[Rfam]
RNA sequence: AACUUUGCGCACGGGCAUGAUCGUAGCUGAGGAAGGUUUAUCCUGAUGGCGCGAUUAUUGCUAGUUGAAAACUUUACCCAAUACCCCGCUGUGUUGAGGUGAAAUACCCUCGACAUUGCAAUUUUUGUCGGCCGUAAGGCC
Numbered sequence: 001a002a003c004u005u006u007g008c009g010c011a012c013g014g015g016c017a018u019g020a021u022c023g024u025a026g027c028u029g030a031g032g033a034a035g036g037u038u039u040a041u042c043c044u045g046a047u048g049g050c051g052c053g054a055u056u057a058u059u060g061c062u063a064g065u066u067g068a069a070a071a072c073u074u075u076a077c078c079c080a081a082u083a084c085c086c087c088g089c090u091g092u093g094u095u096g097a098g099g100u101g102a103a104a105u106a107c108c109c110u111c112g113a114c115a116u117u118g119c120a121a122u123u124u125u126u127g128u129c130g131g132c133c134g135u136a137a138g139g140c141c
Stems, first nucleotide, its partner, number of pairs: 020055005026050003034044003088119002092115008130141004
The family of this 141-nucleotide sequence from Orchesella cincta is "U4 spliceosomal RNA". Taxonomically the source falls in Orchesella (Eukaryota, Pancrustacea, Hexapoda, Entomobryoidea). On this family, see Zwieb, Nucleic Acids Res 1997: "The uRNA database". The family's RNA type in Rfam is spliceosomal small nuclear RNA.